[Rfam]
RNA sequence: UAUGAAUCUGGUGGAAUCACUUCUGCACAAACCUGGCUGCUGGAAUCAGUGUGCGGAAAUGCUUCUGCUACAUUUUUA
Numbered sequence: 001u002a003u004g005a006a007u008c009u010g011g012u013g014g015a016a017u018c019a020c021u022u023c024u025g026c027a028c029a030a031a032c033c034u035g036g037c038u039g040c041u042g043g044a045a046u047c048a049g050u051g052u053g054c055g056g057a058a059a060u061g062c063u064u065c066u067g068c069u070a071c072a073u074u075u076u077u078a
Base pairs, nucleotide, nucleotide: 001078002077004075005074006073007072009070010069011068012067013066014065015064016063018061019060021058022057023056024055025054026053027052028051029050032049
Dot-bracket structure: ((.((((.((((((((.((.(((((((((..(................)))))))))).)).)))))))).)))).))

Shown here is a 78-nucleotide sequence from Sakesphorus luctuosus, a member of the family "mir-147 microRNA precursor family".
A search with the family's covariance model found it, with a score of 83 bits.
The base pairs follow the family's consensus structure, which was predicted with RNAalifold.
For this family Rfam cites "Hidden layers of human small RNAs" (Kawaji et al., BMC Genomics, 2008).